RNA sequence: CAUGAGCGAGCACACCGCCGCCACGAUCCACGUCGGCGUGAACUCCAGCGUCGCCGGCUCCGCCGCCAU
Number, nucleotide and partner (000 for none) at each position: 001c000002a000003u000004g000005a000006g000007c000008g067009a000010g000011c000012a000013c000014a000015c000016c000017g037018c036019c035020g000021c000022c000023a033024c032025g031026a000027u000028c000029c000030a000031c025032g024033u023034c000035g019036g018037c017038g000039u000040g000041a000042a000043c000044u000045c000046c000047a000048g066049c065050g064051u000052c062053g061054c000055c000056g000057g000058c000059u000060c000061c053062g052063c000064c050065g049066c048067c008068a000069u000
RNA: Pseudomonas sRNA P10